[Rfam]
RNA sequence: CUGUAAAGGUAUGCUGGGCUGUAGAGCUGUCUCUCGUGUAAUUUGGUACGGGGCAUACCGAAGAA
Numbered sequence: 001c002u003g004u005a006a007a008g009g010u011a012u013g014c015u016g017g018g019c020u021g022u023a024g025a026g027c028u029g030u031c032u033c034u035c036g037u038g039u040a041a042u043u044u045g046g047u048a049c050g051g052g053g054c055a056u057a058c059c060g061a062a063g064a065a
Base pairs, nucleotide, nucleotide: 008059009058010057011056012055013054015029016028018027019026020025033052034051035050036049037048038047039046
About this RNA
Rfam assigns this 65-nucleotide RNA from Cetobacterium sp. 2A to the family "S4-Fusobacteriales ribosomal protein leader". Clan: Ribosomal Protein S4 Leader clan. A reference for the family is Eckert and Weinberg (2020), "Discovery of 20 novel ribosomal leader candidates in bacteria and archaea", BMC Microbiol. The family's RNA type in Rfam is cis-regulatory leader.